[Rfam]
RNA sequence: AUGUAGGGGGUCUAGGGUUCCAUCCGUGCGCGACUAUCGCGGCGGAGUUUGGUCCGAGAGACGCCACCCGCGACCGACAGUCGCGCGGUACACGGAGGGGUAAAAGCCCGGGAGAG
Number, nucleotide and partner (000 for none) at each position: 001a000002u000003g000004u000005a000006g000007g065008g064009g000010g062011u061012c060013u000014a000015g055016g054017g000018u000019u000020c052021c051022a049023u046024c045025c044026g043027u042028g000029c000030g000031c000032g000033a000034c000035u000036a000037u000038c000039g000040c000041g000042g027043c026044g025045g024046a023047g000048u000049u022050u000051g021052g020053u000054c016055c015056g000057a000058g000059a000060g012061a011062c010063g000064c008065c007066a089067c088068c087069c085070g084071c083072g082073a081074c000075c000076g000077a000078c000079a000080g000081u073082c072083g071084c070085g069086c000087g068088g067089u066090a000091c111092a000093c114094g000095g000096a000097g109098g108099g107100g000101u000102a000103a000104a000105a000106g000107c099108c098109c097110g000111g091112g000113a000114g093115a000116g000
Rfam assigns this 116-nucleotide RNA sequence from Palleronia sediminis to the family "Guanidine-I riboswitch aptamer". Lineage of the source: Bacteria > Pseudomonadati > Alphaproteobacteria > Rhodobacterales > Palleronia. The base pairs follow the family's consensus structure. This family represents a conserved RNA structure found upstream of the ykkC and yxkD genes in Bacillus subtilis and related genes in other bacteria.